[Rfam]
RNA sequence: AAUCACUGGAGAGACUCAUAAUGAGCACCGAAGGAGUAACACUCUCAGGUAAAAGGACAGUGACUUAUA
Dot-bracket structure: (.((((((......((((...)))).(((((..(((.....))))).))).......)))))).)....

A member of the RNA family "Glycine riboswitch aptamer" from Catenibacterium sp. CAG:290, 69 nucleotides long. On this family, see Mandal et al., Science 2004: "A glycine-dependent riboswitch that uses cooperative binding to control gene expression". The organism belongs to Catenibacterium, within Bacteria. From the family's description: This family represents the bacterial glycine riboswitch. The pairing is the family consensus, mapped onto this sequence.